[Rfam]
RNA sequence: AAUGAGUUGGUUAGACGCUUUUCAUUAUAGGUCAUAUGGGGCUUUUUUUCUACAAGAAACGACCCUAUAAUUCCUGGGGUGGGAUUACCCACUACAGAAAUUAUAGAGCC
Numbered sequence: 001a002a003u004g005a006g007u008u009g010g011u012u013a014g015a016c017g018c019u020u021u022u023c024a025u026u027a028u029a030g031g032u033c034a035u036a037u038g039g040g041g042c043u044u045u046u047u048u049u050c051u052a053c054a055a056g057a058a059a060c061g062a063c064c065c066u067a068u069a070a071u072u073c074c075u076g077g078g079g080u081g082g083g084a085u086u087a088c089c090c091a092c093u094a095c096a097g098a099a100a101u102u103a104u105a106g107a108g109c110c
Base pairs, nucleotide, nucleotide: 001026002025003024004023005022006021009018029044030043031042032041033040061110063108065106067104068103069102070101071100072099074097078093079092080091081090082089